[Rfam]
RNA sequence: UCUCCAUUUCGCAUGCUCUCUCGCUUGCUCUAACCGGCGAGAGAGCAUGCGAAAUGGAGAGA
Numbered sequence: 001u002c003u004c005c006a007u008u009u010c011g012c013a014u015g016c017u018c019u020c021u022c023g024c025u026u027g028c029u030c031u032a033a034c035c036g037g038c039g040a041g042a043g044a045g046c047a048u049g050c051g052a053a054a055u056g057g058a059g060a061g062a
Stems, first nucleotide, its partner, number of pairs: 001060007010051001012049006019042004

The record is a 62-nucleotide RNA sequence from Pristionchus pacificus, which matches "mir-8364 microRNA precursor family" in Rfam. Rfam links the family to the GO terms RISC complex and miRNA-mediated post-transcriptional gene silencing.